A member of the RNA family "Clostridiales-1 RNA", 179 nucleotides long. The sequence is in the family's curated seed alignment. It is annotated as a small RNA.
[Rfam]
RNA sequence: UGAGUGAUACUAGGGUCGAAAAGUCACAAGCUGAUCAUGCUUGCAUGAAGAGGCUUGUGACCUUGAGACCUGUUAAAACAUGAGGAUGCAGCGAUUUUCAAGGAAAAUCAGCGAAUCCGAAUGUUUUUAGAAUUGCGAGAGUUGCGUAGCAACGAAGCAAUUCGUAAGUAUCAAUUCAU
Numbered sequence: 001u002g003a004g005u006g007a008u009a010c011u012a013g014g015g016u017c018g019a020a021a022a023g024u025c026a027c028a029a030g031c032u033g034a035u036c037a038u039g040c041u042u043g044c045a046u047g048a049a050g051a052g053g054c055u056u057g058u059g060a061c062c063u064u065g066a067g068a069c070c071u072g073u074u075a076a077a078a079c080a081u082g083a084g085g086a087u088g089c090a091g092c093g094a095u096u097u098u099c100a101a102g103g104a105a106a107a108u109c110a111g112c113g114a115a116u117c118c119g120a121a122u123g124u125u126u127u128u129a130g131a132a133u134u135g136c137g138a139g140a141g142u143u144g145c146g147u148a149g150c151a152a153c154g155a156a157g158c159a160a161u162u163c164g165u166a167a168g169u170a171u172c173a174a175u176u177c178a179u
Base pairs, nucleotide, nucleotide: 005173006172007171008170009169010168011167014070015069016068017067021064022063023062024060025059026058027057028056029055030054031053032052036047037046038045039044075127076126077125078124079123080122081121084118085117086116087115091112092111093109094108095107096106097105098104099103130163131162132161133160134159135158136157141153142152143151144150